Record summary:
Plastid-rpl16 group II-D1 intron: a 47-nucleotide sequence from Capsicum baccatum. A reference for the family is Richter et al. (2023), "Retrograde signaling in plants: A critical review focusing on the GUN pathway and beyond", Plant Commun. Lineage of the source: Eukaryota > Euphyllophyta > eudicotyledons > Gunneridae > Capsicum. Rfam's curators write: Plastid-rpl16 is a non-coding RNA (ncRNA) recognised in plastids. Gene Ontology term of the family: Group II intron splicing. Pairs were carried over by alignment from the consensus structure, which was predicted with LocARNA.
RNA sequence: AUGAGCAUCGAGCCAAUAAAGACUCAGACGAUUGACUCAAGAACUAA
Numbered sequence: 001a002u003g004a005g006c007a008u009c010g011a012g013c014c015a016a017u018a019a020a021g022a023c024u025c026a027g028a029c030g031a032u033u034g035a036c037u038c039a040a041g042a043a044c045u046a047a
Stems, first nucleotide, its partner, number of pairs: 008040001010038003014034004